Rfam assigns this 82-nucleotide RNA from Cloeon dipterum to the family "mir-927 microRNA precursor family". The match comes from Rfam's covariance-model search (61 bits). A reference for the family is Berezikov et al. (2010), "Evolutionary flux of canonical microRNAs and mirtrons in Drosophila", Nat Genet. The source organism's lineage runs through Eukaryota, Pancrustacea, Insecta, Palaeoptera and Cloeon.
RNA sequence: GGGGGCCCUCGGUUUUAGAAUUCCUACGCUUUACCGGCCUCAUGUCACAGGCAAAGCGUUUGAAUUCUGAAAACUGAGGGUU
Numbered sequence: 001g002g003g004g005g006c007c008c009u010c011g012g013u014u015u016u017a018g019a020a021u022u023c024c025u026a027c028g029c030u031u032u033a034c035c036g037g038c039c040u041c042a043u044g045u046c047a048c049a050g051g052c053a054a055a056g057c058g059u060u061u062g063a064a065u066u067c068u069g070a071a072a073a074c075u076g077a078g079g080g081u082u
Base pairs, nucleotide, nucleotide: 010076011075012074013072014071015070016069017068018067019066021064022063023062026059027058028057029056030055031054032053034051035050
Pairs were carried over by alignment from the consensus structure, which was predicted with RNAalifold.